[Rfam]
RNA: Cripavirus internal ribosome entry site (IRES)
Organism: Hubei picorna-like virus 16
RNA sequence: AACAUGAUGUGAUCUUAUAUUUUAGAAUAAAUUAGUGAUGUAAAAUUUGAAAUAUAUUGCUAUCAUGUUAACAGAGUUACCUAUUUAGGUUUACUUCCAAGAUGCUCUAGAAGCAGCCCUUCCAAAAUCUAGGAACCAUCACUCGAUUAUAUAGUUUAAGUUGACUAUAUAGUUUAAAUUAUAACUUGCUACAA
Number, nucleotide and partner (000 for none) at each position: 001a069002a068003c067004a066005u065006g064007a063008u062009g061010u000011g000012a000013u000014c000015u000016u056017a055018u054019a053020u052021u051022u050023u049024a048025g000026a046027a000028u000029a000030a000031a000032u000033u000034a000035g142036u141037g140038a139039u138040g137041u000042a000043a000044a000045a000046u026047u000048u024049g023050a022051a021052a020053u019054a018055u017056a016057u000058u000059g000060c000061u009062a008063u007064c006065a005066u004067g003068u002069u001070a000071a000072c000073a108074g107075a106076g105077u104078u000079a090080c089081c088082u087083a000084u000085u000086u000087a082088g081089g080090u079091u000092u000093a000094c000095u000096u134097c133098c132099a000100a130101g129102a128103u127104g077105c076106u075107c074108u073109a000110g000111a121112a120113g119114c000115a000116g000117c000118c000119c113120u112121u111122c000123c000124a000125a000126a000127a103128u102129c101130u100131a000132g098133g097134a096135a000136c000137c040138a039139u038140c037141a036142c035143u000144c000145g000146a173147u172148u171149a170150u169151a168152u167153a166154g165155u164156u163157u188158a187159a186160g185161u184162u183163g156164a155165c154166u153167a152168u151169a150170u149171a148172g147173u146174u000175u000176a000177a000178a000179u000180u000181a000182u000183a162184a161185c160186u159187u158188g157189c000190u000191a000192c000193a000194a000